[Rfam]
RNA sequence: UGGACAGGGGGGUCUCCGCCGCGAGGCGGAGCCUGUCCGGCAGACCGCGCGAGAGCGCGGUCACGUGGUUGUCGCUCGGGGGUGAUCGCCG
Numbered sequence: 001u002g003g004a005c006a007g008g009g010g011g012g013u014c015u016c017c018g019c020c021g022c023g024a025g026g027c028g029g030a031g032c033c034u035g036u037c038c039g040g041c042a043g044a045c046c047g048c049g050c051g052a053g054a055g056c057g058c059g060g061u062c063a064c065g066u067g068g069u070u071g072u073c074g075c076u077c078g079g080g081g082g083u084g085a086u087c088g089c090c091g
Base pairs, nucleotide, nucleotide: 001039002038003037004036005035006034007033008032014031015030016029017028018027019026020025043062044061045060046059047058048057049056050055

Rfam assigns this 91-nucleotide sequence from Streptomyces carminius to the family "che1 RNA". The family's consensus secondary structure is taken from published work. The family's RNA type in Rfam is small RNA.